[Rfam]
mir-325 microRNA precursor family: a 96-nucleotide sequence from Phyllostomus discolor. Gene Ontology terms of the family: RISC complex and miRNA-mediated post-transcriptional gene silencing. The base pairs follow the family's consensus structure, which was predicted with RNAalifold. Lineage of the source: Eukaryota > Euteleostomi > Theria > Yangochiroptera > Phyllostomus.
RNA sequence: AUACAGUGCUUGGUUCCUAGUAGGUGUUCAGUAAGUGUUUGUGGCAAUUCAUUUAUUGAGCACCUUCUAUCAGCCAAGCACUGUGCUAGGUUCUGA
Number, nucleotide and partner (000 for none) at each position: 001a000002u000003a084004c083005a082006g081007u080008g079009c078010u077011u076012g075013g074014u073015u072016c000017c000018u069019a068020g067021u000022a065023g064024g063025u062026g000027u060028u000029c058030a057031g056032u055033a054034a053035g052036u051037g050038u000039u000040u047041g000042u000043g000044g000045c000046a000047a040048u000049u000050c037051a036052u035053u034054u033055a032056u031057u030058g029059a000060g027061c000062a025063c024064c023065u022066u000067c020068u019069a018070u000071c000072a015073g014074c013075c012076a011077a010078g009079c008080a007081c006082u005083g004084u003085g000086c000087u000088a000089g000090g000091u000092u000093c000094u000095g000096a000